[Rfam]
Description
Small nucleolar RNA SNORA13: a 132-nucleotide sequence from Denticeps clupeoides. Rfam links the family to the GO terms RNA processing and nucleolus. Taxonomically the source falls in Denticeps (Eukaryota, Eumetazoa, Gnathostomata, Otomorpha). The family's RNA type in Rfam is H/ACA-box small nucleolar RNA. Rfam 15.1 lists 1,034 matches to the family in 605 species. The base pairs follow the family's consensus structure, which was predicted with CMfinder. A search with the family's covariance model found it, with a score of 72 bits. Rfam describes the family as follows. ACA13 is a member of the H/ACA class of snoRNA that guide the sites of modification of uridines to pseudouridines.
RNA sequence: UGCCUUUAUGUGUUGCCCUUUCACUAGCUUGUAAUGGUGGAUGUGGUGUCAGCAAAGGCAGACAUUAAACUUGUUCGAGACUUCAGUGUCACUAAUUGUGAUGACACAAUGGGACUUGAAACAAGAACAUUU
Numbered sequence: 001u002g003c004c005u006u007u008a009u010g011u012g013u014u015g016c017c018c019u020u021u022c023a024c025u026a027g028c029u030u031g032u033a034a035u036g037g038u039g040g041a042u043g044u045g046g047u048g049u050c051a052g053c054a055a056a057g058g059c060a061g062a063c064a065u066u067a068a069a070c071u072u073g074u075u076c077g078a079g080a081c082u083u084c085a086g087u088g089u090c091a092c093u094a095a096u097u098g099u100g101a102u103g104a105c106a107c108a109a110u111g112g113g114a115c116u117u118g119a120a121a122c123a124a125g126a127a128c129a130u131u132u
Base pairs, nucleotide, nucleotide: 002059003058004057005056006055007054011051012050014048015047016046017045018043020041021040022039023038024037025036070125071124072123073122074120075119076118077117078116079115084112086110087109088107089106092103